About this RNA: The family of this 186-nucleotide RNA from Lactococcus lactis is "Listeria sRNA rli28". A reference for the family is Michels et al. (1991), "Muscarinic cholinergic control of vasopressin secretion from the acute hypothalamoneurohypophysial explant", Neuroendocrinology. The base pairs follow the family's consensus structure, which was predicted with RNAalifold. By type it is a small RNA.
[Rfam]
RNA sequence: UUCUUUUUGUUAUAAUAUUUAAAGAGAAAGUUUAUAGCGGUUGGCUAAGUAUAGAAAGAGGGGUGAUGCCUAUGAGUAUAGGUAUUUCCCUAUCAAACUAGAAAGGCAAAAAUUUUUGAGUGUCUCAGACAGCUUAACCUUGAUGAUUGCAUUUGCAAGUUUCAUUGUUAUGUUGCUCAAUCUCAU
Numbered sequence: 001u002u003c004u005u006u007u008u009g010u011u012a013u014a015a016u017a018u019u020u021a022a023a024g025a026g027a028a029a030g031u032u033u034a035u036a037g038c039g040g041u042u043g044g045c046u047a048a049g050u051a052u053a054g055a056a057a058g059a060g061g062g063g064u065g066a067u068g069c070c071u072a073u074g075a076g077u078a079u080a081g082g083u084a085u086u087u088c089c090c091u092a093u094c095a096a097a098c099u100a101g102a103a104a105g106g107c108a109a110a111a112a113u114u115u116u117u118g119a120g121u122g123u124c125u126c127a128g129a130c131a132g133c134u135u136a137a138c139c140u141u142g143a144u145g146a147u148u149g150c151a152u153u154u155g156c157a158a159g160u161u162u163c164a165u166u167g168u169u170a171u172g173u174u175g176c177u178c179a180a181u182c183u184c185a186u
Stems, first nucleotide, its partner, number of pairs: 041159002044156002059099002061090003065086002068083002118138001122134001124132002164181004